[Rfam]
RNA: SAM riboswitch aptamer (S box leader)
RNA sequence: CACUCAUCCAGAGGGGCAGAGGGACACGGCCCGCUGAAGCCCCGGCAACCACCGUGCGCACUCGUGCGCGCAGCAGGUGCCCCUUCCGUCCUGCGCGGCUCGACGGCCCGACGCGGGGAAGAUGAGGA
Numbered sequence: 001c002a003c004u005c006a007u008c009c010a011g012a013g014g015g016g017c018a019g020a021g022g023g024a025c026a027c028g029g030c031c032c033g034c035u036g037a038a039g040c041c042c043c044g045g046c047a048a049c050c051a052c053c054g055u056g057c058g059c060a061c062u063c064g065u066g067c068g069c070g071c072a073g074c075a076g077g078u079g080c081c082c083c084u085u086c087c088g089u090c091c092u093g094c095g096c097g098g099c100u101c102g103a104c105g106g107c108c109c110g111a112c113g114c115g116g117g118g119a120a121g122a123u124g125a126g127g128a
Stems, first nucleotide, its partner, number of pairs: 003126006013043005021032003026089004044081004049077002052073001085120001090117006